[Rfam]
RNA sequence: CCGUGCUAGAUGGGGAGGUAGCGGUGCCCUGUAACUCGCAAUCCGCUGUAGCGAGGUUGAAUUCCUACUUGAGGUUAUGCUGAUGUAGAGUCUUGGCACUUGCGAGCAGUGUUGACAGUUGGGUCCUCCGCAAUGGACGUUUGUGAACCCGGUCAGGUCCGGAAGGAAGCAGCCAUAAGCAAAUUAGUUCAUGUGCCGGGGGAGUGCCUGACUCGAGCUGUAGUGCAAGGAUGUCGUCUGGGUCGCAUUUAUCAGGAGUAGGUGCACGG
Numbered sequence: 001c002c003g004u005g006c007u008a009g010a011u012g013g014g015g016a017g018g019u020a021g022c023g024g025u026g027c028c029c030u031g032u033a034a035c036u037c038g039c040a041a042u043c044c045g046c047u048g049u050a051g052c053g054a055g056g057u058u059g060a061a062u063u064c065c066u067a068c069u070u071g072a073g074g075u076u077a078u079g080c081u082g083a084u085g086u087a088g089a090g091u092c093u094u095g096g097c098a099c100u101u102g103c104g105a106g107c108a109g110u111g112u113u114g115a116c117a118g119u120u121g122g123g124u125c126c127u128c129c130g131c132a133a134u135g136g137a138c139g140u141u142u143g144u145g146a147a148c149c150c151g152g153u154c155a156g157g158u159c160c161g162g163a164a165g166g167a168a169g170c171a172g173c174c175a176u177a178a179g180c181a182a183a184u185u186a187g188u189u190c191a192u193g194u195g196c197c198g199g200g201g202g203a204g205u206g207c208c209u210g211a212c213u214c215g216a217g218c219u220g221u222a223g224u225g226c227a228a229g230g231a232u233g234u235c236g237u238c239u240g241g242g243u244c245g246c247a248u249u250u251a252u253c254a255g256g257a258g259u260a261g262g263u264g265c266a267c268g269g
Base pairs, nucleotide, nucleotide: 001269002268003267004266005265006264009058010057011056012030013029014028015027017025019023035055036054037053038052039051064262065261066260067259068258069257070256073253074252075251077249081245082244083243084242086240087239088238089237093233099229100228101227102226103225106224107223108219109218110217117213118212119211120210121209122208123207124206125202126201127200128199129198130197131193132192134191135190136189137188138187139184140183141182142181143180144179151174152173153172158167159166160165
Rfam assigns this 269-nucleotide RNA sequence from Paenibacillus sp. FSL H8-0548 to the family "Bacterial large signal recognition particle RNA". Gene Ontology terms of the family: signal recognition particle, plasma membrane targeting and SRP-dependent cotranslational protein targeting to membrane, signal sequence recognition. On this family, see Rosenblad et al., Nucleic Acids Res 2003: "SRPDB: Signal Recognition Particle Database". A search with the family's covariance model found it, with a score of 197 bits.